RNA sequence: GCUUCAUAUUGUUGUACGUCGCUCUGGAUAAGAGCGUCUGCCAAAUGCCAUUAA
Numbered sequence: 001g002c003u004u005c006a007u008a009u010u011g012u013u014g015u016a017c018g019u020c021g022c023u024c025u026g027g028a029u030a031a032g033a034g035c036g037u038c039u040g041c042c043a044a045a046u047g048c049c050a051u052u053a054a
Stems, first nucleotide, its partner, number of pairs: 013043001014041003020036006
This 54-nucleotide RNA sequence from Conger conger belongs to the Rfam family "UnaL2 LINE 3' element". The organism belongs to Conger, within Eukaryota. The eel long interspersed element (LINE) UnaL2 and its partner short interspersed element (SINE) share a conserved 3' tail containing a stem-loop that is critical for their retrotransposition. Presumably, the first step of retrotransposition is the recognition of their 3' tails by UnaL2-encoded reverse transcriptase. A reference for the family is Baba et al. (2004), "Solution structure of an RNA stem-loop derived from the 3' conserved region of eel LINE UnaL2", RNA.